Annotation:
MIR814 microRNA precursor family: an 83-nucleotide RNA from Oryza meridionalis.
RNA sequence: ACCGGAUGUGACACUUCAUAGUACAACGAAUCCGGGCAUACUCCCUGUCCAGAUUCGUUGUACUAUGAAGUGUCCUAUCCGGU
Number, nucleotide and partner (000 for none) at each position: 001a083002c082003c081004g080005g079006a078007u077008g076009u000010g074011a073012c072013a071014c070015u069016u068017c000018a066019u065020a064021g063022u062023a061024c060025a059026a058027c057028g056029a055030a054031u053032c052033c000034g050035g049036g048037c047038a046039u000040a000041c000042u000043c000044c000045c000046u038047g037048u036049c035050c034051a000052g032053a031054u030055u029056c028057g027058u026059u025060g024061u023062a022063c021064u020065a019066u018067g000068a016069a015070g014071u013072g012073u011074c010075c000076u008077a007078u006079c005080c004081g003082g002083u001
The source organism's lineage runs through Eukaryota, Streptophytina, Embryophyta, Oryzinae and Oryza. The match comes from Rfam's covariance-model search (90 bits).